[Rfam]
RNA sequence: UGGUUGGGAGGUUCGCCCGAAGCGAACCGUCGGAACAUGGUUUCCGCCUGACCA
Numbered sequence: 001u002g003g004u005u006g007g008g009a010g011g012u013u014c015g016c017c018c019g020a021a022g023c024g025a026a027c028c029g030u031c032g033g034a035a036c037a038u039g040g041u042u043u044c045c046g047c048c049u050g051a052c053c054a
Stems, first nucleotide, its partner, number of pairs: 001054008010028007031046005
A member of the RNA family "DUF3800-VI RNA" from Magnetospirillum sp. SS-4, 54 nucleotides long. Taxonomically the source falls in Magnetospirillum (Bacteria, Pseudomonadati, Pseudomonadota, Rhodospirillaceae). The match comes from Rfam's covariance-model search (43 bits).